[Rfam]
RNA sequence: UGCGAAACGGCAAACCCAUCGCGAGGUGGGGACGCAAAGCCACGGGACCCCAGAGGUCAGCCGGGCUACCGAAC
Numbered sequence: 001u002g003c004g005a006a007a008c009g010g011c012a013a014a015c016c017c018a019u020c021g022c023g024a025g026g027u028g029g030g031g032a033c034g035c036a037a038a039g040c041c042a043c044g045g046g047a048c049c050c051c052a053g054a055g056g057u058c059a060g061c062c063g064g065g066c067u068a069c070c071g072a073a074c
Base pairs, nucleotide, nucleotide: 010035011034015030016029017028018027019026020025033060038067039066040065041064043063044062045061046058047057048056
Dot-bracket structure: .........((...((((((....))))))..[))..((((.((((((.......))).]))))))).......

The family of this 74-nucleotide RNA from Cellulomonas sp. SLBN-39 is "c-di-GMP-I-GGC riboswitch aptamer".
Lineage of the source: Bacteria > Bacillati > Micrococcales > Cellulomonadaceae > Cellulomonas.
A search with the family's covariance model found it, with a score of 61 bits.
The literature on the family includes a 2012 paper in Biochemistry by Smith et al., "Structural and biochemical characterization of linear dinucleotide analogues bound to the c-di-GMP-I aptamer".